RNA: Mammalian CPEB3 ribozyme
RNA sequence: GGUGCAUGUUUGAGGUCAUAGCAGAAGCGCUCAUGGUGCAGAUCUGUCAGAUUCCAAAGAAUCUGUAAAUUUUGCU
Numbered sequence: 001g002g003u004g005c006a007u008g009u010u011u012g013a014g015g016u017c018a019u020a021g022c023a024g025a026a027g028c029g030c031u032c033a034u035g036g037u038g039c040a041g042a043u044c045u046g047u048c049a050g051a052u053u054c055c056a057a058a059g060a061a062u063c064u065g066u067a068a069a070u071u072u073u074g075c076u
Base pairs, nucleotide, nucleotide: 014044015043016041020076021075022074023073024072025071026070027039028038029037048065049064050063051062052061053060054059